RNA sequence: AUGCGUCAGGAGCGUGAUCGCCAUGGCCGUCACGACAGUACGCAACUUGAAUCUGGUCGCGCCAUCGGCUCACAAGGCCGGUGCCAUGCGCAUCACAGAUACCGCUGGCAGCAGUCAGGGCAGGUCUGGCGCAGUUUCCGAACUGAUCGGUAAUAACCUUCGGUCCGGCGACGUGUUUUGCGCGAAUAAACG
Numbered sequence: 001a002u003g004c005g006u007c008a009g010g011a012g013c014g015u016g017a018u019c020g021c022c023a024u025g026g027c028c029g030u031c032a033c034g035a036c037a038g039u040a041c042g043c044a045a046c047u048u049g050a051a052u053c054u055g056g057u058c059g060c061g062c063c064a065u066c067g068g069c070u071c072a073c074a075a076g077g078c079c080g081g082u083g084c085c086a087u088g089c090g091c092a093u094c095a096c097a098g099a100u101a102c103c104g105c106u107g108g109c110a111g112c113a114g115u116c117a118g119g120g121c122a123g124g125u126c127u128g129g130c131g132c133a134g135u136u137u138c139c140g141a142a143c144u145g146a147u148c149g150g151u152a153a154u155a156a157c158c159u160u161c162g163g164u165c166c167g168g169c170g171a172c173g174u175g176u177u178u179u180g181c182g183c184g185a186a187u188a189a190a191c192g
Base pairs, nucleotide, nucleotide: 004042005041006040013034014033015032016031017030018029020027021026057185058184059183060182061181062180063083064082066080067079068078069077070076087133088132089131090130091129096128097127098126099125102124103123105118106117107116108115109114135171136170138168139167140166142164143163144162145161146160149158150157151156
A member of the RNA family "RT-15 RNA" from Paracandidimonas soli, 192 nucleotides long. The base pairs follow the family's consensus structure, which is taken from published work. It scores 160 bits against the family's covariance model. The source organism's lineage runs through Bacteria, Pseudomonadota, Burkholderiales, Alcaligenaceae and Paracandidimonas. It is annotated as a small RNA.